[Rfam]
RNA sequence: GUUUCCCUUUUAAAGCACCCUGCUAUAAUUGUGGGGGUGAAGCCUCUGGGCUUGGCCCUUGCAGGCAUGUGAGCAUGGGUACACCAAGGAAGAAAAGUGAAGGCAGUGUCGCAAAUGAGGCUAGGGUGGACCGCUUUCUUAAUGUCCGGGGUCCUAUGUCUCAAGAUUCUGUGCUACAAUA
Numbered sequence: 001g002u003u004u005c006c007c008u009u010u011u012a013a014a015g016c017a018c019c020c021u022g023c024u025a026u027a028a029u030u031g032u033g034g035g036g037g038u039g040a041a042g043c044c045u046c047u048g049g050g051c052u053u054g055g056c057c058c059u060u061g062c063a064g065g066c067a068u069g070u071g072a073g074c075a076u077g078g079g080u081a082c083a084c085c086a087a088g089g090a091a092g093a094a095a096a097g098u099g100a101a102g103g104c105a106g107u108g109u110c111g112c113a114a115a116u117g118a119g120g121c122u123a124g125g126g127u128g129g130a131c132c133g134c135u136u137u138c139u140u141a142a143u144g145u146c147c148g149g150g151g152u153c154c155u156a157u158g159u160c161u162c163a164a165g166a167u168u169c170u171g172u173g174c175u176a177c178a179a180u181a
Stems, first nucleotide, its partner, number of pairs: 018079002021075004028068002034059002037056002040053005102175004106169001108167001123152001127148004
RNA: Small nucleolar RNA SNORA81
Organism: Coregonus sp. 'balchen'